[Rfam]
RNA sequence: GUCAACAUCUUACCAGACAGCAUUAGAUUGAGCCUGAUUUCUAAUACUGUCAGGUAAAGAUGUCCGC
Numbered sequence: 001g002u003c004a005a006c007a008u009c010u011u012a013c014c015a016g017a018c019a020g021c022a023u024u025a026g027a028u029u030g031a032g033c034c035u036g037a038u039u040u041c042u043a044a045u046a047c048u049g050u051c052a053g054g055u056a057a058a059g060a061u062g063u064c065c066g067c
Stems, first nucleotide, its partner, number of pairs: 002066001005063005010057005016051005022045006
This 67-nucleotide sequence from Ixodes scapularis belongs to the Rfam family "mir-8/mir-141/mir-200 microRNA precursor family". The family has 164 seed sequences and 2,669 matches in Rfam 15.1. NCBI's taxonomy places the organism under Eukaryota, Parasitiformes, Ixodoidea, Ixodinae, Ixodes. The family is grouped with related families in Rfam's "mir-8 microRNA precursor clan". The base pairs follow the family's consensus structure, which was predicted with RNAalifold.